Annotation: c-di-GMP-II-GAG riboswitch aptamer: an 85-nucleotide sequence. On this family, see Weinberg et al., Proc Natl Acad Sci U S A 2017: "Bioinformatic analysis of riboswitch structures uncovers variant classes with altered ligand specificity". Rfam links the family to the GO terms regulation of gene expression and cyclic-di-GMP binding. It is one of the family's seed sequences.
[Rfam]
RNA sequence: GGUCUGGCGGGAGGCUCUGACACGCGGUCCAAACCCCGGCCGCCGGGACCGCGCCGAGCCACUGGCGAGACGGACCCGUCUGAUC
Number, nucleotide and partner (000 for none) at each position: 001g085002g084003u083004c082005u000006g080007g079008c078009g077010g076011g075012a000013g060014g059015c058016u000017c000018u000019g000020a000021c000022a000023c053024g052025c051026g050027g049028u048029c047030c000031a000032a000033a000034c000035c000036c000037c000038g000039g071040c000041c067042g066043c065044c064045g000046g000047g029048a028049c027050c026051g025052c024053g023054c000055c000056g000057a000058g015059c014060c013061a000062c000063u000064g044065g043066c042067g041068a000069g000070a000071c039072g000073g000074a000075c011076c010077c009078g008079u007080c006081u000082g004083a003084u002085c001